[Rfam]
Shown here is a 48-nucleotide RNA, a member of the family "chrB-b RNA".
The family's consensus secondary structure is taken from published work.
The sequence is in the family's curated seed alignment.
RNA sequence: CGGGGCAGGGCAGACGCCCCGUCAGACGGUCUUCCGUCCAAGUUCUGC
Numbered sequence: 001c002g003g004g005g006c007a008g009g010g011c012a013g014a015c016g017c018c019c020c021g022u023c024a025g026a027c028g029g030u031c032u033u034c035c036g037u038c039c040a041a042g043u044u045c046u047g048c
Stems, first nucleotide, its partner, number of pairs: 001021006010048005025038005